[Rfam]
RNA sequence: UAACGAUAAUAGCAAACUUGCCGAAAGGCAAGGACGCAAAGCUACAGGGCCUUCCUGACAUUCCUGUCAGAUGGCAGCCUGGCUACCGAA
Numbered sequence: 001u002a003a004c005g006a007u008a009a010u011a012g013c014a015a016a017c018u019u020g021c022c023g024a025a026a027g028g029c030a031a032g033g034a035c036g037c038a039a040a041g042c043u044a045c046a047g048g049g050c051c052u053u054c055c056u057g058a059c060a061u062u063c064c065u066g067u068c069a070g071a072u073g074g075c076a077g078c079c080u081g082g083c084u085a086c087c088g089a090a
Stems, first nucleotide, its partner, number of pairs: 012037002017032006040084004046080003049075003056069004